Record summary
The family of this 80-nucleotide sequence from Bombyx mori is "mir-2807 microRNA precursor family". Taxonomically the source falls in Bombyx (Eukaryota, Altocrustacea, Insecta, Neoptera). A search with the family's covariance model found it, with a score of 60 bits.
RNA sequence: UUAACUCAAAUUUUACGGAUUUCGAACAGCCUAUGUUUGCCGCUAGGGGCGCUGUUCCAACUACAUAGAAAUUUGAAUUA
Numbered sequence: 001u002u003a004a005c006u007c008a009a010a011u012u013u014u015a016c017g018g019a020u021u022u023c024g025a026a027c028a029g030c031c032u033a034u035g036u037u038u039g040c041c042g043c044u045a046g047g048g049g050c051g052c053u054g055u056u057c058c059a060a061c062u063a064c065a066u067a068g069a070a071a072u073u074u075g076a077a078u079u080a
Stems, first nucleotide, its partner, number of pairs: 008074006014067002017064001019062001021060002024057005030048003035043002